[Rfam]
RNA sequence: AAGAUAAAUAGCAACCAAGCAGGUAUAUCGUCGGAUAAUGGCUGACAGUUUCUACCCAACACCAAUGUUGGACUAUCUGUGGAUGUCUUUUUGGC
Numbered sequence: 001a002a003g004a005u006a007a008a009u010a011g012c013a014a015c016c017a018a019g020c021a022g023g024u025a026u027a028u029c030g031u032c033g034g035a036u037a038a039u040g041g042c043u044g045a046c047a048g049u050u051u052c053u054a055c056c057c058a059a060c061a062c063c064a065a066u067g068u069u070g071g072a073c074u075a076u077c078u079g080u081g082g083a084u085g086u087c088u089u090u091u092u093g094g095c
Stems, first nucleotide, its partner, number of pairs: 019080007030046005056071006